[Rfam]
Rfam assigns this 272-nucleotide RNA sequence from Macaca fascicularis to the family "Mason-Pfizer monkey virus packaging signal". The organism belongs to Macaca, within Eukaryota. The match comes from Rfam's covariance-model search (192 bits). Its family is annotated with viral genome packaging in the Gene Ontology. Pairs were carried over by alignment from the consensus structure, which was predicted with PFOLD. Rfam classes the family as a cis-regulatory element.
RNA sequence: UGCGGGUCAACAGGGACCUGGAAACGAGGGACUCUGUGAGGAAGAGGACGCCAAAGGACGGUCGACCGCUAACAAAGACAAAAGGAAUUAAACUGAUCACCGGAACCUGCCGUCAGGAUCGAAGGUAAGUGAGGCGUCCAAAAUGGGACAAGAAUUAAGCCAACAUGAAAUAUAUGUAGGACAAUUAAGAGAGGCUUUAAAGAUACGAGGAGUAAAGGUUAAAGGUAAUGACUUGUUUAAAUUUUUUGAUUUUGUAAAAGAUAUUUGCCCUU
Numbered sequence: 001u002g003c004g005g006g007u008c009a010a011c012a013g014g015g016a017c018c019u020g021g022a023a024a025c026g027a028g029g030g031a032c033u034c035u036g037u038g039a040g041g042a043a044g045a046g047g048a049c050g051c052c053a054a055a056g057g058a059c060g061g062u063c064g065a066c067c068g069c070u071a072a073c074a075a076a077g078a079c080a081a082a083a084g085g086a087a088u089u090a091a092a093c094u095g096a097u098c099a100c101c102g103g104a105a106c107c108u109g110c111c112g113u114c115a116g117g118a119u120c121g122a123a124g125g126u127a128a129g130u131g132a133g134g135c136g137u138c139c140a141a142a143a144u145g146g147g148a149c150a151a152g153a154a155u156u157a158a159g160c161c162a163a164c165a166u167g168a169a170a171u172a173u174a175u176g177u178a179g180g181a182c183a184a185u186u187a188a189g190a191g192a193g194g195c196u197u198u199a200a201a202g203a204u205a206c207g208a209g210g211a212g213u214a215a216a217g218g219u220u221a222a223a224g225g226u227a228a229u230g231a232c233u234u235g236u237u238u239a240a241a242u243u244u245u246u247u248g249a250u251u252u253u254g255u256a257a258a259a260g261a262u263a264u265u266u267g268c269c270c271u272u
Base pairs, nucleotide, nucleotide: 007029008028035047037045087126088125089124093121097118098116101112102111134149137147138146139145140144156199157198158197159195160194161193206248207247208246209245210244211243212242213241216234217233218232219231220230221229257272258271260269262267